[Rfam]
RNA sequence: UGCAUUCAAUACUGUAAGUCCCACUGGAUAAGAGCGUCUGCUAAAUGACUAAAA
Numbered sequence: 001u002g003c004a005u006u007c008a009a010u011a012c013u014g015u016a017a018g019u020c021c022c023a024c025u026g027g028a029u030a031a032g033a034g035c036g037u038c039u040g041c042u043a044a045a046u047g048a049c050u051a052a053a054a
Base pairs, nucleotide, nucleotide: 013043014041015040016039020036022034024032025031
Dot-bracket structure: ............((((...(.(.((.....)).).)..))).)...........

Description
This 54-nucleotide RNA sequence from Salmo trutta belongs to the Rfam family "UnaL2 LINE 3' element". Rfam links the family to the GO term transposition, RNA-mediated. About the family: The eel long interspersed element (LINE) UnaL2 and its partner short interspersed element (SINE) share a conserved 3' tail containing a stem-loop that is critical for their retrotransposition. The family has 30 seed sequences and 493,311 matches in Rfam 15.1. The match comes from Rfam's covariance-model search (57 bits). Lineage of the source: Eukaryota > Opisthokonta > Metazoa > Eumetazoa > Salmo. A reference for the family is Baba et al. (2004), "Solution structure of an RNA stem-loop derived from the 3' conserved region of eel LINE UnaL2", RNA.